[Rfam]
RNA: EcpR1
RNA sequence: UCCCCUAGGGAAUUGCUCAGGUCCGCCGCAUCUCCUGGGUCCCGUGGGGUUCGGCCGGUCUGGAAGCGGUGUUCUGUGGCCUCCUCGUACGCCGCUUCCGACCGGCCACCAU
Numbered sequence: 001u002c003c004c005c006u007a008g009g010g011a012a013u014u015g016c017u018c019a020g021g022u023c024c025g026c027c028g029c030a031u032c033u034c035c036u037g038g039g040u041c042c043c044g045u046g047g048g049g050u051u052c053g054g055c056c057g058g059u060c061u062g063g064a065a066g067c068g069g070u071g072u073u074c075u076g077u078g079g080c081c082u083c084c085u086c087g088u089a090c091g092c093c094g095c096u097u098c099c100g101a102c103c104g105g106c107c108a109c110c111a112u
Base pairs, nucleotide, nucleotide: 003049004048005047006046007045009043010042016039017038018037019036020035021034053107054106055105056104057103058102059101060100062098063097